[Rfam]
RNA sequence: AUUUAAAUACAAUUCUUGUUAAGGUUCAAC
Numbered sequence: 001a002u003u004u005a006a007a008u009a010c011a012a013u014u015c016u017u018g019u020u021a022a023g024g025u026u027c028a029a030c
Stems, first nucleotide, its partner, number of pairs: 009019004
RNA: CRISPR RNA direct repeat element
Organism: Clostridium kluyveri